[Rfam]
RNA sequence: AUCAGAAAAGGGCAAACCUAUUGAAAAAUAGGGACGCAAAGUCACAGGUCUAAAGUUGGUAACAAUAAUGACGGCUGGAUUACCUGA
Numbered sequence: 001a002u003c004a005g006a007a008a009a010g011g012g013c014a015a016a017c018c019u020a021u022u023g024a025a026a027a028a029u030a031g032g033g034a035c036g037c038a039a040a041g042u043c044a045c046a047g048g049u050c051u052a053a054a055g056u057u058g059g060u061a062a063c064a065a066u067a068a069u070g071a072c073g074g075c076u077g078g079a080u081u082a083c084c085u086g087a
Stems, first nucleotide, its partner, number of pairs: 012037002017032006040081004045077003048072003055066004
RNA: c-di-GMP-I riboswitch aptamer
Organism: Oceanobacillus limi